[Rfam]
RNA sequence: GAAACCUUUAAAGAAGUCCAGAGAGGCUACUAAGGCUGAUACGGUUUAAAAUGGCAGUAAACUGUCAAUUUUCGUGUAACCUUGCCUCAGGCAAGGUUUUUCUAU
Dot-bracket structure: ..(.((((....(.((((......)))).).)))).)..........(((.((((((....)))))).)))..(.(.(((((((((...))))))))).).)...
Numbered sequence: 001g002a003a004a005c006c007u008u009u010a011a012a013g014a015a016g017u018c019c020a021g022a023g024a025g026g027c028u029a030c031u032a033a034g035g036c037u038g039a040u041a042c043g044g045u046u047u048a049a050a051a052u053g054g055c056a057g058u059a060a061a062c063u064g065u066c067a068a069u070u071u072u073c074g075u076g077u078a079a080c081c082u083u084g085c086c087u088c089a090g091g092c093a094a095g096g097u098u099u100u101u102c103u104a105u
Stems, first nucleotide, its partner, number of pairs: 003037001005035004013030001015028004048071003052067006074102001076100001078098009
Shown here is a 105-nucleotide RNA sequence from Streptococcus intermedius, a member of the family "PyrR binding site". Pairs were carried over by alignment from the consensus structure, which is taken from published work. From the family's description: This family represents the PyrR binding site and terminator structure. This RNA structure is found upstream of a variety of genes involved in pyrimidine biosynthesis and transport. The alignment also includes a portion of the antiterminator structure. A reference for the family is Bonner et al. (2001), "Molecular recognition of pyr mRNA by the Bacillus subtilis attenuation regulatory protein PyrR", Nucleic Acids Res. The match comes from Rfam's covariance-model search (58 bits). By type it is a cis-regulatory element. The organism belongs to Streptococcus intermedius, within Bacteria.